[Rfam]
RNA sequence: AUAUCAUUUCAAAGAGGGCUUAUGAGACCAAAACCAGGAGCUCUUAAUGCUGUGACCAAAGACUGAAGUUCUCCACGGGAUGUAACAGUCACUCAACAGUGCUAUGUCUUCCUGAGGAGAUACAAGA
Numbered sequence: 001a002u003a004u005c006a007u008u009u010c011a012a013a014g015a016g017g018g019c020u021u022a023u024g025a026g027a028c029c030a031a032a033a034c035c036a037g038g039a040g041c042u043c044u045u046a047a048u049g050c051u052g053u054g055a056c057c058a059a060a061g062a063c064u065g066a067a068g069u070u071c072u073c074c075a076c077g078g079g080a081u082g083u084a085a086c087a088g089u090c091a092c093u094c095a096a097c098a099g100u101g102c103u104a105u106g107u108c109u110u111c112c113u114g115a116g117g118a119g120a121u122a123c124a125a126g127a
Base pairs, nucleotide, nucleotide: 004055005054006053007052014045015044016043017042018041019040020039021038023037026035070120071119072118073117074116077113078112079111080110085105087103088102090101091100092099093098
Dot-bracket structure: ...((((......((((((((.(..(........).)))))))))......))))..............(((((..((((....(.((.((((....)))))).)....))))..))))).......

About this RNA: This 127-nucleotide RNA from Lipotes vexillifer belongs to the Rfam family "Small nucleolar RNA SNORA25". Lineage of the source: Eukaryota > Bilateria > Sarcopterygii > Eutheria > Lipotes. The family's RNA type in Rfam is H/ACA-box small nucleolar RNA. It scores 115 bits against the family's covariance model.